Rfam assigns this 166-nucleotide sequence from a Micromonosporaceae bacterium to the family "c-di-AMP riboswitch aptamer (ydaO/yuaA leader)". The match comes from Rfam's covariance-model search (72 bits).
[Rfam]
RNA sequence: CGGCCGACACCGCCGAGUCACCGCGACGGUAUCGGUCUCGGUGAGCCGGGGAACCGUGCAGCACCCGGGGUGAAUCCUCGACGGCGCGGCAGUCCGCGAAGUCGCGGUAGGGCGAACUUCCCGCCCGAACCCGUCAGCUAACCCGGUAGGCGGUCAGGGAGAAGGG
Numbered sequence: 001c002g003g004c005c006g007a008c009a010c011c012g013c014c015g016a017g018u019c020a021c022c023g024c025g026a027c028g029g030u031a032u033c034g035g036u037c038u039c040g041g042u043g044a045g046c047c048g049g050g051g052a053a054c055c056g057u058g059c060a061g062c063a064c065c066c067g068g069g070g071u072g073a074a075u076c077c078u079c080g081a082c083g084g085c086g087c088g089g090c091a092g093u094c095c096g097c098g099a100a101g102u103c104g105c106g107g108u109a110g111g112g113c114g115a116a117c118u119u120c121c122c123g124c125c126c127g128a129a130c131c132c133g134u135c136a137g138c139u140a141a142c143c144c145g146g147u148a149g150g151c152g153g154u155c156a157g158g159g160a161g162a163a164g165g166g
Base pairs, nucleotide, nucleotide: 011152012151013150014149018044019043020042021041022040023039045147046146047145048144049143050142055067056066068132069131070130076107077106079104080103081102082101110126111125112124113123